[Rfam]
RNA sequence: CCUUAUGGAUGAGCAAAGAAAGUGGUUUCUUGAGGCGCAAACCACUUUCUUUGCUCAUCUGAAAGAA
Numbered sequence: 001c002c003u004u005a006u007g008g009a010u011g012a013g014c015a016a017a018g019a020a021a022g023u024g025g026u027u028u029c030u031u032g033a034g035g036c037g038c039a040a041a042c043c044a045c046u047u048u049c050u051u052u053g054c055u056c057a058u059c060u061g062a063a064a065g066a067a
Stems, first nucleotide, its partner, number of pairs: 002065003007060022